The record is a 126-nucleotide sequence from Runella slithyformis, which matches "SAM riboswitch aptamer (S box leader)" in Rfam. From the family's description: The SAM riboswitch is found upstream of a number of genes which code for proteins involved in methionine or cysteine biosynthesis in Gram-positive bacteria. It scores 68 bits against the family's covariance model. NCBI's taxonomy places the organism under Bacteria, Cytophagales, Spirosomataceae, Runella, Runella slithyformis.

RNA sequence: GAUUUAUAAAGAAGAGGGGAGAGAAUAGGCUCCGCGAACCUCUGGCAACCUGUUUCCAAAUACACGAGAUAAGGUGCUAAUUCCUACCUAAGCGGUCGCAACAACGACCCUCAGGGGAUAUAAAUC
Number, nucleotide and partner (000 for none) at each position: 001g126002a125003u124004u123005u122006a121007u120008a119009a000010a000011g000012a000013a043014g042015a041016g040017g039018g000019g000020a000021g032022a031023g030024a000025a000026u086027a085028g084029g083030c023031u022032c021033c000034g000035c000036g000037a000038a000039c017040c016041u015042c014043u013044g078045g077046c076047a075048a000049c074050c073051u000052g070053u069054u068055u067056c066057c000058a000059a000060a000061u000062a000063c000064a000065c000066g056067a055068g054069a053070u052071a000072a000073g050074g049075u047076g046077c045078u044079a000080a000081u000082u118083c029084c028085u027086a026087c115088c114089u113090a000091a111092g110093c000094g000095g000096u000097c000098g000099c000100a000101a000102c000103a000104a000105c000106g000107a000108c000109c000110c092111u091112c000113a089114g088115g087116g000117g000118a082119u008120a007121u006122a005123a004124a003125u002126c001